Shown here is a 92-nucleotide RNA sequence, a member of the family "S15-Methanomicrobia ribosomal protein leader". By type it is a cis-regulatory leader. For this family Rfam cites "Discovery of 20 novel ribosomal leader candidates in bacteria and archaea" (Eckert and Weinberg, BMC Microbiol, 2020).
RNA sequence: AGCACUGAUUUCUUAUCGUGCUGGCUUAUGUAAGUCCGACGUGCCCGACGCAAUUGAGACGGCACUGCCCUGUUCAUGGGCUUUGGGAUUAC
Numbered sequence: 001a002g003c004a005c006u007g008a009u010u011u012c013u014u015a016u017c018g019u020g021c022u023g024g025c026u027u028a029u030g031u032a033a034g035u036c037c038g039a040c041g042u043g044c045c046c047g048a049c050g051c052a053a054u055u056g057a058g059a060c061g062g063c064a065c066u067g068c069c070c071u072g073u074u075c076a077u078g079g080g081c082u083u084u085g086g087g088a089u090u091a092c
Stems, first nucleotide, its partner, number of pairs: 001022005030092004036087002041065005067081004